[Rfam]
RNA: Small nucleolar RNA SNORA20
Organism: Sus scrofa
RNA sequence: CUUCCCAUUUAUUUGCUGCUAUGGUCUUUCAGUGACAUGAGCAGUUAUACGCAUGGGAUAAAAUAACAUUGGAUCAUUGUAACUUGGGAUGGAGUAACUGUUUCAUCUAUUUUGCAUGGUCUAGACAUUG
Numbered sequence: 001c002u003u004c005c006c007a008u009u010u011a012u013u014u015g016c017u018g019c020u021a022u023g024g025u026c027u028u029u030c031a032g033u034g035a036c037a038u039g040a041g042c043a044g045u046u047a048u049a050c051g052c053a054u055g056g057g058a059u060a061a062a063a064u065a066a067c068a069u070u071g072g073a074u075c076a077u078u079g080u081a082a083c084u085u086g087g088g089a090u091g092g093a094g095u096a097a098c099u100g101u102u103u104c105a106u107c108u109a110u111u112u113u114g115c116a117u118g119g120u121c122u123a124g125a126c127a128u129u130g
Base pairs, nucleotide, nucleotide: 003058004057005056006055007054008053015045016044017043018042019041020040022037023036025035026034069124070123071122072121073120074119075118076117078116079115080114081113087108088107089106090105091104092103093102094101095100